[Rfam]
RNA sequence: AGUUGCAAGUUCAAGGCCGUACCAGAAAUGCUCAUGGCACGGCCUGUCAGAUUCCAACGAAUCUGUGAAUUCUGCU
Numbered sequence: 001a002g003u004u005g006c007a008a009g010u011u012c013a014a015g016g017c018c019g020u021a022c023c024a025g026a027a028a029u030g031c032u033c034a035u036g037g038c039a040c041g042g043c044c045u046g047u048c049a050g051a052u053u054c055c056a057a058c059g060a061a062u063c064u065g066u067g068a069a070u071u072c073u074g075c076u
Stems, first nucleotide, its partner, number of pairs: 015044004021076001023074005029039002048065007
The record is a 76-nucleotide RNA sequence from Crocodylus porosus, which matches "Mammalian CPEB3 ribozyme" in Rfam.